The record is a 122-nucleotide sequence from Jiella endophytica, which matches "Rhizobiales sRNA Atu_C8" in Rfam. It scores 82 bits against the family's covariance model. The family's RNA type in Rfam is small RNA. A reference for the family is Wilms et al. (2012), "Deep sequencing uncovers numerous small RNAs on all four replicons of the plant pathogen Agrobacterium tumefaciens", RNA Biol.
RNA sequence: CGCCAUGACGACGAAGCUGAUUCUCGUAGGAAUGCGCACACGCGUGGCGGUCUGAGGGCCGCCCGGCGAUAGCCACGUGUGCGCGAUACAAGGGCCCCAGAGGCCCUUUUUUAUUGCCGAAA
Number, nucleotide and partner (000 for none) at each position: 001c000002g000003c000004c000005a000006u000007g000008a000009c026010g000011a000012c000013g000014a000015a000016g000017c000018u000019g000020a000021u000022u000023c000024u000025c000026g009027u000028a000029g118030g117031a000032a115033u085034g084035c083036g082037c081038a080039c079040a078041c077042g076043c000044g000045u000046g063047g062048c061049g060050g059051u000052c000053u000054g000055a000056g000057g000058g000059c050060c049061g048062c047063c046064c000065g000066g073067c072068g000069a000070u000071a000072g067073c066074c000075a000076c042077g041078u040079g039080u038081g037082c036083g035084c034085g033086a000087u000088a000089c000090a107091a000092g106093g105094g104095c103096c102097c000098c000099a000100g000101a000102g096103g095104c094105c093106c092107u090108u000109u000110u000111u000112u000113a000114u000115u032116g000117c030118c029119g000120a000121a000122a000